Record summary
Shown here is a 48-nucleotide RNA from Leucobacter tardus, a member of the family "Guanidine-II riboswitch aptamer (mini-ykkC)". Simpler in structure and has fewer highly conserved nucleotide positions than the ykkC-yxkD leader. Despite this each of its two stem-loop structures directly bind free guanidine. Therefore, mini-ykkC RNA motif represents a distinct class of guanidine-sensing RNAs. The organism belongs to Leucobacter, within Bacteria.
RNA sequence: UCACCGGGACGACCCGGUCGAUGCGCCUCACCAGCCGGGACGACCCUG
Numbered sequence: 001u002c003a004c005c006g007g008g009a010c011g012a013c014c015c016g017g018u019c020g021a022u023g024c025g026c027c028u029c030a031c032c033a034g035c036c037g038g039g040a041c042g043a044c045c046c047u048g
Base pairs, nucleotide, nucleotide: 001020003018004017005016006015007014008013035048037046038045039044